The family of this 97-nucleotide sequence from Typha latifolia is "Plastid-rps12 3UTR RNA". A reference for the family is Richter et al. (2023), "Retrograde signaling in plants: A critical review focusing on the GUN pathway and beyond", Plant Commun. Rfam's curators write: Plastid rpl20 is a non-coding RNA (ncRNA) recognised in plastids.
Nucleotides: 097
Stems, first nucleotide, its partner, number of pairs: 009023004052087001054085002056078002059075006
Number, partner (000 for none) and nucleotide at each position: 001000g002000g003000u004000u005000u006000c007000c008000a009023u010022u011021g012020g013000u014000g015000c016000a017000a018000a019000u020012c021011c022010a023009a024000u025000c026000a027000u028000c029000u030000a031000g032000a033000u034000u035000u036000g037000a038000a039000a040000u041000a042000a043000g044000a045000a046000g047000c048000a049000a050000u051000u052087c053000c054085c055084c056078a057077u058000u059075g060074g061073u062072a063071g064070c065000a066000a067000a068000c069000g070064g071063u072062u073061a074060u075059c076000c077057a078056u079000u080000a081000a082000g083000c084055g085054g086000c087052g088000g089000a090000a091000a092000u093000u094000a095000u096000a097000u